The record is an 85-nucleotide RNA from Brochothrix thermosphacta, which matches "RNA anti-toxin A" in Rfam. Lineage of the source: Bacteria > Bacillota > Bacilli > Caryophanales > Brochothrix. Its family is annotated with mRNA binding and negative regulation of translation in the Gene Ontology. The match comes from Rfam's covariance-model search (51 bits).

RNA sequence: UAACGGUAUAGAAAAAGACACUAGCGCAAACUAGCGUCCGUGUAGAACCGUUUAAGACGGUGGCUACGCAAUUAAUUACGUGAAA
Numbered sequence: 001u002a003a004c005g006g007u008a009u010a011g012a013a014a015a016a017g018a019c020a021c022u023a024g025c026g027c028a029a030a031c032u033a034g035c036g037u038c039c040g041u042g043u044a045g046a047a048c049c050g051u052u053u054a055a056g057a058c059g060g061u062g063g064c065u066a067c068g069c070a071a072u073u074a075a076u077u078a079c080g081u082g083a084a085a
Base pairs, nucleotide, nucleotide: 021034022033023032024031047061048060049059050058051057052056